The family of this 382-nucleotide RNA sequence from Novimethylophilus kurashikiensis is "Betaproteobacteria transfer-messenger RNA". The family's consensus secondary structure is taken from published work. Gene Ontology term of the family: RNA catabolic process. A reference for the family is Williams and Bartel (1996), "Phylogenetic analysis of tmRNA secondary structure", RNA.

RNA sequence: UAUAGAAAUAGUUAUUGACAAAACUGUCUAUUUUGUAUAUACUGCUUGAAUCGUUGUAAUUCCUCUGGAGUUAAACGGCGUUGGAAGGGGGUUCGAUUCCCCCCGCCUCCACCAAAAGAGCUGUCGGUUUGCCGGAUGUCCACUAAUACUGGAAUGGCCUACUAACCUAACAACUCUUCUGACGGGGGCGCCAGGCUUCGACAGCGUUGGGAGAUGAAGGCGGCAACGGCAGUAGGCGAACACUGCGGCACUUGUGCCAUGAAGUAGCAAAAAAGUAUUCGCAAACGACGAAUCUUAUCGCCUGGUCGCUUGACCAAGCCGGGGUUUGAAGGAGCCUUGUUAAGCAAUUCCUUCACAGAGGCCCCUUAACUGGGGCUUUUGU
Numbered sequence: 001u002a003u004a005g006a007a008a009u010a011g012u013u014a015u016u017g018a019c020a021a022a023a024c025u026g027u028c029u030a031u032u033u034u035g036u037a038u039a040u041a042c043u044g045c046u047u048g049a050a051u052c053g054u055u056g057u058a059a060u061u062c063c064u065c066u067g068g069a070g071u072u073a074a075a076c077g078g079c080g081u082u083g084g085a086a087g088g089g090g091g092u093u094c095g096a097u098u099c100c101c102c103c104c105g106c107c108u109c110c111a112c113c114a115a116a117a118g119a120g121c122u123g124u125c126g127g128u129u130u131g132c133c134g135g136a137u138g139u140c141c142a143c144u145a146a147u148a149c150u151g152g153a154a155u156g157g158c159c160u161a162c163u164a165a166c167c168u169a170a171c172a173a174c175u176c177u178u179c180u181g182a183c184g185g186g187g188g189c190g191c192c193a194g195g196c197u198u199c200g201a202c203a204g205c206g207u208u209g210g211g212a213g214a215u216g217a218a219g220g221c222g223g224c225a226a227c228g229g230c231a232g233u234a235g236g237c238g239a240a241c242a243c244u245g246c247g248g249c250a251c252u253u254g255u256g257c258c259a260u261g262a263a264g265u266a267g268c269a270a271a272a273a274a275g276u277a278u279u280c281g282c283a284a285a286c287g288a289c290g291a292a293u294c295u296u297a298u299c300g301c302c303u304g305g306u307c308g309c310u311u312g313a314c315c316a317a318g319c320c321g322g323g324g325u326u327u328g329a330a331g332g333a334g335c336c337u338u339g340u341u342a343a344g345c346a347a348u349u350c351c352u353u354c355a356c357a358g359a360g361g362c363c364c365c366u367u368a369a370c371u372g373g374g375g376c377u378u379u380u381g382u
Stems, first nucleotide, its partner, number of pairs: 052228005062223002065220002069215001071214001077208007087103005104190007229258001322337004328354006358379008